[Rfam]
RNA sequence: GUUUUUAAAGUUUACAACAUUUGUAUAGCUCAUAAUAAGGUUGAGCGUCUCUACGGCAGACCGUAAAUAAUUGCCACUACAAAUGAAUUUUUUUUCUAC
Number, nucleotide and partner (000 for none) at each position: 001g000002u000003u000004u000005u000006u000007a000008a000009a000010g000011u000012u000013u000014a000015c000016a000017a000018c085019a084020u083021u082022u081023g080024u079025a078026u000027a000028g000029c045030u044031c043032a042033u000034a000035a000036u000037a000038a000039g000040g000041u000042u032043g031044a030045g029046c000047g000048u000049c000050u000051c000052u000053a000054c000055g075056g074057c073058a072059g071060a068061c000062c000063g000064u000065a000066a000067a000068u060069a000070a000071u059072u058073g057074c056075c055076a000077c000078u025079a024080c023081a022082a021083a020084u019085g018086a000087a000088u000089u000090u000091u000092u000093u000094u000095u000096c000097u000098a000099c000